[Rfam]
RNA sequence: GAUAGCGUUCUUUUAGGGAUAGUCGGCUAAUCCCCUUUAUGAAAGGGGGUGAUGCCUAUGGGUAUGUAUGAAAGUUUAAUGGUGUUAUUUAGUUUUGGCACCUUCUUGAUUGCAUUGCUCGCUUUGAUUGUAUCACUGAUCAAACGGAAAUAGACCUCCCUAUUAACCGCAAAAGAAGUAGGUGAGGUCUAUCGAUUACCGAUAGCCGAUCCCUCUAGGGGAACCGCUUAUCUAUAACCCGUAGUGACAGCUACGGGU
Number, nucleotide and partner (000 for none) at each position: 001g232002a231003u230004a229005g227006c226007g225008u000009u209010c208011u165012u000013u000014u162015a161016g160017g159018g158019a000020u000021a000022g155023u154024c153025g000026g000027c000028u052029a000030a050031u000032c048033c047034c046035c045036u044037u000038u000039a000040u000041g000042a000043a000044a036045g035046g034047g033048g032049g000050u030051g000052a028053u000054g000055c000056c000057u000058a000059u000060g122061g000062g120063u000064a000065u117066g116067u000068a000069u000070g000071a000072a000073a088074g000075u000076u000077u000078a000079a000080u000081g000082g000083u000084g000085u000086u000087a000088u073089u000090u000091a000092g000093u000094u000095u000096u000097g000098g113099c112100a111101c000102c000103u000104u000105c000106u000107u000108g000109a000110u000111u100112g099113c098114a000115u000116u066117g065118c000119u000120c062121g000122c060123u000124u000125u000126g000127a000128u000129u000130g000131u000132a000133u000134c000135a000136c000137u000138g000139a000140u000141c000142a000143a000144a000145c000146g000147g000148a000149a000150a000151u000152a000153g024154a023155c022156c000157u000158c018159c017160c016161u015162a014163u000164u000165a011166a000167c000168c000169g000170c000171a000172a000173a000174a000175g000176a197177a196178g000179u000180a000181g000182g000183u000184g000185a000186g000187g000188u000189c000190u000191a000192u000193c000194g000195a000196u177197u176198a000199c000200c000201g000202a000203u000204a000205g000206c000207c000208g010209a009210u222211c221212c220213c219214u000215c000216u000217a000218g000219g213220g212221g211222a210223a000224c000225c007226g006227c005228u000229u004230a003231u002232c001233u000234a000235u000236a000237a258238c257239c256240c255241g254242u253243a252244g251245u250246g000247a000248c000249a000250g245251c244252u243253a242254c241255g240256g239257g238258u237
RNA: BsrG